The record is an 88-nucleotide RNA sequence from Hibiscus trionum, which matches "mir-393 microRNA precursor family" in Rfam. Rfam links the family to the GO terms RISC complex and miRNA-mediated post-transcriptional gene silencing.
RNA sequence: AGAGUAGGUAUCCAAAGGGAUCGCAUUGAUCCUUCAUUCUCAACCCUCUGUUUCUUUUGGAUCAUGCUAUCCCUUCGGAUUCCUCCUU
Number, nucleotide and partner (000 for none) at each position: 001a000002g088003a087004g086005u000006a084007g000008g082009u000010a080011u079012c078013c077014a000015a075016a074017g073018g072019g071020a070021u069022c000023g067024c066025a065026u064027u000028g063029a062030u061031c060032c059033u000034u000035c000036a056037u000038u000039c000040u000041c000042a000043a000044c000045c000046c000047u000048c000049u000050g000051u000052u000053u000054c000055u000056u036057u000058u000059g032060g031061a030062u029063c028064a026065u025066g024067c023068u000069a021070u020071c019072c018073c017074u016075u015076c000077g013078g012079a011080u010081u000082c008083c000084u006085c000086c004087u003088u002